[Rfam]
RNA sequence: CUCAAGGAAGCGCUUUGCCUACGUGGACAGAAAACGCUUCCUUGAGGGUGCACUUUUAGUCCACGUAAGCAAAGCGCUUCCUUGAGG
Numbered sequence: 001c002u003c004a005a006g007g008a009a010g011c012g013c014u015u016u017g018c019c020u021a022c023g024u025g026g027a028c029a030g031a032a033a034a035c036g037c038u039u040c041c042u043u044g045a046g047g048g049u050g051c052a053c054u055u056u057u058a059g060u061c062c063a064c065g066u067a068a069g070c071a072a073a074g075c076g077c078u079u080c081c082u083u084g085a086g087g
Stems, first nucleotide, its partner, number of pairs: 001086018020067002023064006030057004036051002040047002
RNA: MIR7486 microRNA precursor family